[Rfam]
RNA sequence: GGUUGCUAGUUUGAGGCCACAGCAAAAGUGCUCAUGGUGUGGCCUGUCAGAUUCCAACAAAUCUGUAAAUUCUGCU
Numbered sequence: 001g002g003u004u005g006c007u008a009g010u011u012u013g014a015g016g017c018c019a020c021a022g023c024a025a026a027a028g029u030g031c032u033c034a035u036g037g038u039g040u041g042g043c044c045u046g047u048c049a050g051a052u053u054c055c056a057a058c059a060a061a062u063c064u065g066u067a068a069a070u071u072c073u074g075c076u
Stems, first nucleotide, its partner, number of pairs: 015044004021076004026071002028040003048065006

Mammalian CPEB3 ribozyme: a 76-nucleotide RNA sequence from Alligator mississippiensis. The base pairs follow the family's consensus structure, which is taken from published work. Taxonomically the source falls in Alligator (Eukaryota, Gnathostomata, Amniota, Archelosauria). Its family is annotated with RNA nuclease activity in the Gene Ontology.